The family of this 135-nucleotide RNA sequence from Vibrio alginolyticus is "Molybdenum/Tungsten riboswitch aptamer (Moco RNA motif)". Rfam's curators put it in the seed alignment.

RNA sequence: UGGUUGCCAUAACUCCGAGCUCACUAUUGCUAAGUCCUUGGAUAAGCGUUUUGAGCCAGUGGCAUACUGUCACAAGGGCAUGAUUGGAAAUGGCCAUGCCUCCCGUGUUUGGAAAGGUGUUCCGUGGCGCAACAA
Numbered sequence: 001u002g003g004u005u006g007c008c009a010u011a012a013c014u015c016c017g018a019g020c021u022c023a024c025u026a027u028u029g030c031u032a033a034g035u036c037c038u039u040g041g042a043u044a045a046g047c048g049u050u051u052u053g054a055g056c057c058a059g060u061g062g063c064a065u066a067c068u069g070u071c072a073c074a075a076g077g078g079c080a081u082g083a084u085u086g087g088a089a090a091u092g093g094c095c096a097u098g099c100c101u102c103c104c105g106u107g108u109u110u111g112g113a114a115a116g117g118u119g120u121u122c123c124g125u126g127g128c129g130c131a132a133c134a135a
Stems, first nucleotide, its partner, number of pairs: 011121003015117002019056005026049001028048003034043003059073005076101007084093003102112002
A reference for the family is Regulski et al. (2008), "in molybdenum cofactor and tungsten cofactor metabolism", Mol Microbiol.